[Rfam]
RNA sequence: AUAUUUGCAGGUGUGGCAUCAUCAAGAUUCACAUUGGUCUGAGCAGCUGCUAUGUGAUUCUUAAUGAGAAUCUUGAUGAUGCUGCAUCAGCAAAUAA
Numbered sequence: 001a002u003a004u005u006u007g008c009a010g011g012u013g014u015g016g017c018a019u020c021a022u023c024a025a026g027a028u029u030c031a032c033a034u035u036g037g038u039c040u041g042a043g044c045a046g047c048u049g050c051u052a053u054g055u056g057a058u059u060c061u062u063a064a065u066g067a068g069a070a071u072c073u074u075g076a077u078g079a080u081g082c083u084g085c086a087u088c089a090g091c092a093a094a095u096a097a
Base pairs, nucleotide, nucleotide: 010088011087012086013085014084015083016082017081018080019079020078021077022076023075024074025073026072027071028070029069030068032066033065034064035063036062037061
mir-172 microRNA precursor family: a 97-nucleotide sequence from Elaeis guineensis. Rfam describes the family as follows. mir-172 has been experimentally verified in Arabidopsis thaliana. This family is thought to target mRNAs coding for APETALA2-like transcription factors. A search with the family's covariance model found it, with a score of 83 bits. Lineage of the source: Eukaryota > Euphyllophyta > Magnoliopsida > Mesangiospermae > Elaeis. Gene Ontology terms of the family: RISC complex and miRNA-mediated post-transcriptional gene silencing. A reference for the family is Jones-Rhoades and Bartel (2004), "Computational Identification of Plant MicroRNAs and Their Targets, Including a Stress-Induced miRNA", Mol Cell.